[Rfam]
RNA sequence: UGGACAUUUACUUUUUUAUUUGGUUUCCUCUUAAGGUGAAGAAAGCUCUUUGUAAAUGUCCUAGAGAAAUACAGCAGCUUUCUGUUCACCCUUUGUAAGUAAAAAGGGUGGAUCGUCCCACUACUGACACGC
Numbered sequence: 001u002g003g004a005c006a007u008u009u010a011c012u013u014u015u016u017u018a019u020u021u022g023g024u025u026u027c028c029u030c031u032u033a034a035g036g037u038g039a040a041g042a043a044a045g046c047u048c049u050u051u052g053u054a055a056a057u058g059u060c061c062u063a064g065a066g067a068a069a070u071a072c073a074g075c076a077g078c079u080u081u082c083u084g085u086u087c088a089c090c091c092u093u094u095g096u097a098a099g100u101a102a103a104a105a106g107g108g109u110g111g112a113u114c115g116u117c118c119c120a121c122u123a124c125u126g127a128c129a130c131g132c
Stems, first nucleotide, its partner, number of pairs: 002061010022047004026042002029039002072126003076122002091106004
RNA: Small Cajal body specific RNA 24